Rfam assigns this 91-nucleotide RNA sequence from Nyctereutes procyonoides to the family "Small nucleolar SNORD12/SNORD106". The source organism's lineage runs through Eukaryota, Bilateria, Deuterostomia, Caniformia and Nyctereutes. The match comes from Rfam's covariance-model search (94 bits). By type it is a C/D-box small nucleolar RNA. Rfam links the family to the GO terms nucleolus and RNA processing.
RNA sequence: GCUGGUGUAAAUGAUGACUGAGCUUUUUUCCCCAUCAGAUCGACAAUGCUGAGGUCUUUGAACACUUGCCAGUUAGUUCUGAUGCACCGGC
Numbered sequence: 001g002c003u004g005g006u007g008u009a010a011a012u013g014a015u016g017a018c019u020g021a022g023c024u025u026u027u028u029u030c031c032c033c034a035u036c037a038g039a040u041c042g043a044c045a046a047u048g049c050u051g052a053g054g055u056c057u058u059u060g061a062a063c064a065c066u067u068g069c070c071a072g073u074u075a076g077u078u079c080u081g082a083u084g085c086a087c088c089g090g091c
Stems, first nucleotide, its partner, number of pairs: 001091009